S4-Fusobacteriales ribosomal protein leader: a 55-nucleotide sequence from Cetobacterium somerae. The source organism's lineage runs through Bacteria, Fusobacteriati, Fusobacteriaceae, Cetobacterium and Cetobacterium somerae.
RNA sequence: CUGUAAAGGUAUGUUAGGCUGUAGAGCUAGUACUCGAAAGAGGCAUACCGAAGAA
Numbered sequence: 001c002u003g004u005a006a007a008g009g010u011a012u013g014u015u016a017g018g019c020u021g022u023a024g025a026g027c028u029a030g031u032a033c034u035c036g037a038a039a040g041a042g043g044c045a046u047a048c049c050g051a052a053g054a055a
Base pairs, nucleotide, nucleotide: 008049009048010047011046012045013044014030015029016028018027019026020025033042034041035040

Background: It is one of the family's seed sequences. Clan: Ribosomal Protein S4 Leader clan. On this family, see Eckert and Weinberg, BMC Microbiol 2020: "Discovery of 20 novel ribosomal leader candidates in bacteria and archaea". The family's consensus secondary structure is taken from published work. By type it is a cis-regulatory leader.